[Rfam]
Nucleotides: 089
Stems, first nucleotide, its partner, number of pairs: 012037002017032003021028002040083004047079002049075003056069004
Number, partner (000 for none) and nucleotide at each position: 001000c002000a003000c004000a005000g006000g007000u008000a009000a010000a011000g012037g013036c014000a015000c016000a017032c018031c019030u020000g021028c022027c023000g024000a025000a026000a027022g028021g029000a030019a031018g032017g033000g034000c035000c036013g037012c038000a039000a040083a041082g042081c043080u044000a045000u046000a047079g048078g049075g050074g051073c052000u053000a054000a055000c056069a057068c058067g059066c060000g061000g062000u063000g064000a065000a066059g067058c068057g069056u070000u071000a072000u073051g074050c075049c076000a077000g078048c079047c080043a081042g082041c083040u084000g085000c086000c087000g088000a089000a

Rfam assigns this 89-nucleotide sequence from Paenibacillus darwinianus to the family "c-di-GMP-I riboswitch aptamer".
Lineage of the source: Bacteria > Bacillati > Bacillota > Paenibacillaceae > Paenibacillus.